[Rfam]
RNA sequence: AGGGACGGAUCCGGCGGGACGAACGACCCUCGUUCCCUGGUCCGGCGGCGCGUCGCCGGUUUGGGCUUCUCUCCUUUGCGCGGAGACGCAUGAGAACCUCGAUAAGCGCAAGCUUACCGAAACUCAUGUGCAGGCUUUGAAAGCCCGGACCGCAAUAUUCGAGGUUGGCGCAGGCGUCGGUUACCCGAACGAUGGGGAGCGGCUCCCUCAGCCCGGAGGCGGCGAGACGACGCGAUCCGUGUCCGGGA
Numbered sequence: 001a002g003g004g005a006c007g008g009a010u011c012c013g014g015c016g017g018g019a020c021g022a023a024c025g026a027c028c029c030u031c032g033u034u035c036c037c038u039g040g041u042c043c044g045g046c047g048g049c050g051c052g053u054c055g056c057c058g059g060u061u062u063g064g065g066c067u068u069c070u071c072u073c074c075u076u077u078g079c080g081c082g083g084a085g086a087c088g089c090a091u092g093a094g095a096a097c098c099u100c101g102a103u104a105a106g107c108g109c110a111a112g113c114u115u116a117c118c119g120a121a122a123c124u125c126a127u128g129u130g131c132a133g134g135c136u137u138u139g140a141a142a143g144c145c146c147g148g149a150c151c152g153c154a155a156u157a158u159u160c161g162a163g164g165u166u167g168g169c170g171c172a173g174g175c176g177u178c179g180g181u182u183a184c185c186c187g188a189a190c191g192a193u194g195g196g197g198a199g200c201g202g203c204u205c206c207c208u209c210a211g212c213c214c215g216g217a218g219g220c221g222g223c224g225a226g227a228c229g230a231c232g233c234g235a236u237c238c239g240u241g242u243c244c245g246g247g248a
Stems, first nucleotide, its partner, number of pairs: 005240006012044003015039004057152004063146006071085004089130004163213004
Methylosinus-1 RNA: a 248-nucleotide sequence. The sequence is in the family's curated seed alignment. The base pairs follow the family's consensus structure, which is taken from published work. By type it is a small RNA.